[Rfam]
RNA sequence: UUAACUGUGGUUCGAAAACCUCCCACUCAAAAAAACUAAGGAUCU
Numbered sequence: 001u002u003a004a005c006u007g008u009g010g011u012u013c014g015a016a017a018a019c020c021u022c023c024c025a026c027u028c029a030a031a032a033a034a035a036c037u038a039a040g041g042a043u044c045u
Base pairs, nucleotide, nucleotide: 007026008025009024010023016037

This 45-nucleotide RNA from Vespertiliibacter pulmonis belongs to the Rfam family "PreQ1 (pre queuosine) riboswitch aptamer".
This family is a bacterial riboswitch that binds to the metabolite preQ1, an intermediate in the biosynthesis of the modified nucleoside queuosine from GTP. One example of this riboswitch is located in the leader of the Bacillus subtilis ykvJKLM (queCDEF) operon which encodes four genes necessary for queuosine production.
NCBI's taxonomy places the organism under Bacteria, Pseudomonadota, Gammaproteobacteria, Pasteurellales, Vespertiliibacter.
Pairs were carried over by alignment from the consensus structure.
Rfam links the family to the GO term queuosine biosynthetic process.